[Rfam]
RNA sequence: UCCAUCGCAAGGUGGAGCUGAAGGAAGUCCUAGGCAAAAUUCCGACCCAAGGAACACGAACAUUCUCAGGCAAGCUAUUUGUGGAUGAGUCUGCCAAACAAGACAAAGUCCUAUAACUACACGGAACGAAUAGGUGUAAAGAAUGUCGGUACAUGGUAAGGAAAGUGAAUUGU
Dot-bracket structure: ((((((....))))))..........((..(..((....((.(.(((.(...........(((((....(((..(((((((.((((..((((........))))...))))...............))))))).)))...)))))).))).....).)).....))..)..))
Shown here is a 173-nucleotide RNA sequence from Alkaliphilus sp., a member of the family "Group II catalytic intron D1-D4-3".
The pairing is the family consensus, mapped onto this sequence.
Gene Ontology term of the family: Group II intron splicing.
The match comes from Rfam's covariance-model search (114 bits).